[Rfam]
Overview: The record is an 81-nucleotide sequence from Ornithorhynchus anatinus, which matches "mir-194 microRNA precursor family" in Rfam. Rfam links the family to the GO terms miRNA-mediated post-transcriptional gene silencing and RISC complex. For this family Rfam cites "Reduced accumulation of specific microRNAs in colorectal neoplasia" (Michael et al., Mol Cancer Res, 2003). It is one of the family's seed sequences. The family has 46 seed sequences and 936 matches in Rfam 15.1. NCBI's taxonomy places the organism under Eukaryota, Bilateria, Chordata, Sarcopterygii, Ornithorhynchus.

RNA sequence: CAGUGUUAUCAUAUGUAACAGCAACUCCAUGUGGAUUAUGCUGAUUUCCAGUGGAGAGGCUGUUACUUUUGAUGGAAACUG
Numbered sequence: 001c002a003g004u005g006u007u008a009u010c011a012u013a014u015g016u017a018a019c020a021g022c023a024a025c026u027c028c029a030u031g032u033g034g035a036u037u038a039u040g041c042u043g044a045u046u047u048c049c050a051g052u053g054g055a056g057a058g059g060c061u062g063u064u065a066c067u068u069u070u071g072a073u074g075g076a077a078a079c080u081g
Stems, first nucleotide, its partner, number of pairs: 009072003015066008025056006032050003